[Rfam]
The record is a 126-nucleotide RNA sequence from Formicarius rufipectus, which matches "Small nucleolar RNA SNORA17" in Rfam.
On this family, see Ofengand and Bakin, J Mol Biol 1997: "Mapping to nucleotide resolution of pseudouridine residues in large subunit ribosomal RNAs from representative eukaryotes, prokaryotes, archaebacteria, mitochondria and chloroplasts".
RNA sequence: CCAGUUCCUACCUUUACAGGUGUGGCUGCAGUGCCACGUUUGUGUCAUUCGGUGGCAGAGAGGACAAAGCGAGGUCUUCCCCUGGUGCUCUGACCCACAUGGGCUCCCAGGAUUUCUCAACAGCCU
Number, nucleotide and partner (000 for none) at each position: 001c000002c058003a000004g056005u055006u054007c052008c051009u000010a000011c000012c044013u000014u000015u000016a043017c042018a041019g040020g000021u038022g037023u036024g035025g034026c033027u000028g000029c000030a000031g000032u000033g026034c025035c024036a023037c022038g021039u000040u019041u018042g017043u016044g012045u000046c000047a000048u000049u000050c000051g008052g007053u000054g006055g005056c004057a000058g002059a000060g000061a000062g000063g000064a000065c000066a000067a126068a000069g124070c000071g118072a117073g116074g000075u000076c000077u000078u112079c111080c110081c000082c000083u000084g108085g107086u000087g104088c103089u102090c101091u000092g000093a000094c000095c000096c000097a000098c000099a000100u000101g090102g089103g088104c087105u000106c000107c085108c084109a000110g080111g079112a078113u000114u000115u000116c073117u072118c071119a000120a000121c000122a000123g000124c069125c000126u067